[Rfam]
RNA sequence: CAUCUAUACCAUCUGGUAAUUCUAAAAC
Numbered sequence: 001c002a003u004c005u006a007u008a009c010c011a012u013c014u015g016g017u018a019a020u021u022c023u024a025a026a027a028c
Base pairs, nucleotide, nucleotide: 007018008017009016010015
RNA: CRISPR RNA direct repeat element
Organism: Capsicum baccatum